[Rfam]
RNA: tRNA
Organism: Pectinatus cerevisiiphilus
RNA sequence: GGGUAGGUGCCCGAGUGGUUAAAGGGAACAGACUGUAAAUCUGUCACCGUGAGGUUACGAUGGUUCGAAUCCAUCCCUGCCCA
Dot-bracket structure: (((((((..(((...........))).(((((.......)))))..............(((((.......)))))))))))).